[Rfam]
RNA sequence: AAUCCAUGGUGUGGACAAUCUCGCUGGUAAGACUUGAAUCUGACCCAAGUAUCCUUGAAUGACUCUCCAGGCUCCUGGUUGAAUGUGGCAAUUUUCCUCCUUAAGUCU
Numbered sequence: 001a002a003u004c005c006a007u008g009g010u011g012u013g014g015a016c017a018a019u020c021u022c023g024c025u026g027g028u029a030a031g032a033c034u035u036g037a038a039u040c041u042g043a044c045c046c047a048a049g050u051a052u053c054c055u056u057g058a059a060u061g062a063c064u065c066u067c068c069a070g071g072c073u074c075c076u077g078g079u080u081g082a083a084u085g086u087g088g089c090a091a092u093u094u095u096c097c098u099c100c101u102u103a104a105g106u107c108u
Stems, first nucleotide, its partner, number of pairs: 001108001004105001006102001057074002060071001
Dot-bracket structure: (..(.(..................................................((.(..........).))...........................)..)..)
Rfam assigns this 108-nucleotide RNA sequence from Brassica carinata to the family "Plant small nucleolar RNA R71". Rfam classes the family as a C/D-box small nucleolar RNA. The family's consensus secondary structure was predicted with PFOLD.